[Rfam]
R2 RNA element: a 171-nucleotide RNA sequence from Agrilus planipennis. The base pairs follow the family's consensus structure, which is taken from published work. A search with the family's covariance model found it, with a score of 48 bits. Lineage of the source: Eukaryota > Panarthropoda > Altocrustacea > Aparaglossata > Agrilus. This family represents the 3' UTR region of the R2 retrotransposable element. This family is known to interact with the R2-encoded reverse transcriptase in a reaction known as target primed reverse transcription (TPRT).
RNA sequence: AUCUACAAACAACACUAUCCUAUAAAUAUUCCCAAAUUUCAUAUCUCAAGAAACGGCCUGAGGUAGAGGGGUUUUAGUCGGUAGGUCCGAGGAUUUCUUCCUCGGGAAUCCGACACUACCCAGUCGUACGGACUGCUGGGUGUCUUUUGAAGAUUUCCCCUCUCCACGAAA
Numbered sequence: 001a002u003c004u005a006c007a008a009a010c011a012a013c014a015c016u017a018u019c020c021u022a023u024a025a026a027u028a029u030u031c032c033c034a035a036a037u038u039u040c041a042u043a044u045c046u047c048a049a050g051a052a053a054c055g056g057c058c059u060g061a062g063g064u065a066g067a068g069g070g071g072u073u074u075u076a077g078u079c080g081g082u083a084g085g086u087c088c089g090a091g092g093a094u095u096u097c098u099u100c101c102u103c104g105g106g107a108a109u110c111c112g113a114c115a116c117u118a119c120c121c122a123g124u125c126g127u128a129c130g131g132a133c134u135g136c137u138g139g140g141u142g143u144c145u146u147u148u149g150a151a152g153a154u155u156u157c158c159c160c161u162c163u164c165c166a167c168g169a170a171a
Stems, first nucleotide, its partner, number of pairs: 038170003042166001066164003069159003077114005086106008116142001118141005